Rfam assigns this 74-nucleotide RNA from Sorex araneus to the family "Small nucleolar RNA SNORD107". The family has 13 seed sequences and 144 matches in Rfam 15.1. The base pairs follow the family's consensus structure, which was predicted with WAR.

RNA sequence: GAUUAAUGAUGAUACAGGACCUUGUCUGAAUAUACUGAUUUCAAAAUUUGAGCUUAAAAUAAUAUUCUGAAAUC
Number, nucleotide and partner (000 for none) at each position: 001g074002a073003u072004u071005a000006a000007u000008g000009a000010u000011g000012a000013u000014a000015c000016a000017g000018g000019a000020c000021c000022u000023u000024g000025u000026c000027u000028g000029a000030a000031u000032a000033u000034a000035c000036u000037g000038a000039u000040u000041u000042c000043a000044a000045a000046a000047u000048u000049u000050g000051a000052g000053c000054u000055u000056a000057a000058a000059a000060u000061a000062a000063u000064a000065u000066u000067c000068u000069g000070a000071a004072a003073u002074c001